RNA sequence: CUUUGUGUUCUUCCACGGCUUUCUUGAACUGCAUUUGAUCCUAGGCUCCAGCUACUUUUUUUUAUGAUUAAUUAGUUGCCGCAGUUCAAUAAAGCCGUGGGAAGAUACAAGGA
Numbered sequence: 001c002u003u004u005g006u007g008u009u010c011u012u013c014c015a016c017g018g019c020u021u022u023c024u025u026g027a028a029c030u031g032c033a034u035u036u037g038a039u040c041c042u043a044g045g046c047u048c049c050a051g052c053u054a055c056u057u058u059u060u061u062u063u064a065u066g067a068u069u070a071a072u073u074a075g076u077u078g079c080c081g082c083a084g085u086u087c088a089a090u091a092a093a094g095c096c097g098u099g100g101g102a103a104g105a106u107a108c109a110a111g112g113a
Stems, first nucleotide, its partner, number of pairs: 003110005013100003017096006024089004029084004